[Rfam]
Rfam assigns this 269-nucleotide RNA sequence from Rynchops niger to the family "RNase MRP".
RNase MRP is an enzymatically active ribonucleoprotein with two distinct roles in eukaryotes.

RNA sequence: GGAUGCUCUGAAGACCUGCUCUCUAGGCCACGCACGGAGGACGUUUGGUUUCUCACGGGCCCCAUGGCCGCCUAGGGGAAAGUCCCCGGACCGCCGGCAGAGAGUGCCGGGCGCGGCCGCGCCCCGCCCGCCUCCGCCUCACGCAUCUUUCCGCCAAGAGGCCCCGCGGGCUGAGCGGGUGAGCACGGGGCGGGCCCUCGUCACGGCCGACAGACACGCAGGUAGUGCGCCCGGCGCACCAACAGAACGGGGCUCACUCUCAGGCCAUC
Numbered sequence: 001g002g003a004u005g006c007u008c009u010g011a012a013g014a015c016c017u018g019c020u021c022u023c024u025a026g027g028c029c030a031c032g033c034a035c036g037g038a039g040g041a042c043g044u045u046u047g048g049u050u051u052c053u054c055a056c057g058g059g060c061c062c063c064a065u066g067g068c069c070g071c072c073u074a075g076g077g078g079a080a081a082g083u084c085c086c087c088g089g090a091c092c093g094c095c096g097g098c099a100g101a102g103a104g105u106g107c108c109g110g111g112c113g114c115g116g117c118c119g120c121g122c123c124c125c126g127c128c129c130g131c132c133u134c135c136g137c138c139u140c141a142c143g144c145a146u147c148u149u150u151c152c153g154c155c156a157a158g159a160g161g162c163c164c165c166g167c168g169g170g171c172u173g174a175g176c177g178g179g180u181g182a183g184c185a186c187g188g189g190g191c192g193g194g195c196c197c198u199c200g201u202c203a204c205g206g207c208c209g210a211c212a213g214a215c216a217c218g219c220a221g222g223u224a225g226u227g228c229g230c231c232c233g234g235c236g237c238a239c240c241a242a243c244a245g246a247a248c249g250g251g252g253c254u255c256a257c258u259c260u261c262a263g264g265c266c267a268u269c
Stems, first nucleotide, its partner, number of pairs: 002269004007264005014223006022076007037054005081254002084252004096108004109124006126195003130191005140183001142181001151178004161171004225239006
The family's RNA type in Rfam is ribozyme. A search with the family's covariance model found it, with a score of 163 bits. The organism belongs to Rynchops, within Eukaryota.